[Rfam]
RNA: mir-5928 microRNA precursor family
RNA sequence: AGCUCAAAUCUGAAGUAGGGUAGAUUAGUAAGGUCAGUUGAUCCUACUAUUCUCUGUACUUCAGAAUUGGGCCC
Numbered sequence: 001a002g003c004u005c006a007a008a009u010c011u012g013a014a015g016u017a018g019g020g021u022a023g024a025u026u027a028g029u030a031a032g033g034u035c036a037g038u039u040g041a042u043c044c045u046a047c048u049a050u051u052c053u054c055u056g057u058a059c060u061u062c063a064g065a066a067u068u069g070g071g072c073c074c
Stems, first nucleotide, its partner, number of pairs: 002072006009065001011063007019055002022053002026049005032043004